[Rfam]
RNA: Lysine riboswitch aptamer
RNA sequence: AUUUGUGAUAGAGGUGCAAAACUUAAGAGUAGAAACUUGGAGAAGAUUGAGCUUCGAAGAAAAGUUUUGAAAGGAAGUUUUGCCGAAGUGAAGCUGGACUCAAUACCAUGCUUUGCUGGUUCUGUAUUGAAUAAAUCCAGGACUGUCAAGAUAUAGUUAUUAUCUUGGAGAGCUAUCUCAUAA
Numbered sequence: 001a002u003u004u005g006u007g008a009u010a011g012a013g014g015u016g017c018a019a020a021a022c023u024u025a026a027g028a029g030u031a032g033a034a035a036c037u038u039g040g041a042g043a044a045g046a047u048u049g050a051g052c053u054u055c056g057a058a059g060a061a062a063a064g065u066u067u068u069g070a071a072a073g074g075a076a077g078u079u080u081u082g083c084c085g086a087a088g089u090g091a092a093g094c095u096g097g098a099c100u101c102a103a104u105a106c107c108a109u110g111c112u113u114u115g116c117u118g119g120u121u122c123u124g125u126a127u128u129g130a131a132u133a134a135a136u137c138c139a140g141g142a143c144u145g146u147c148a149a150g151a152u153a154u155a156g157u158u159a160u161u162a163u164c165u166u167g168g169a170g171a172g173c174u175a176u177c178u179c180a181u182a183a
Stems, first nucleotide, its partner, number of pairs: 007177005016083009032068007087117008097107001118144007126136003146168007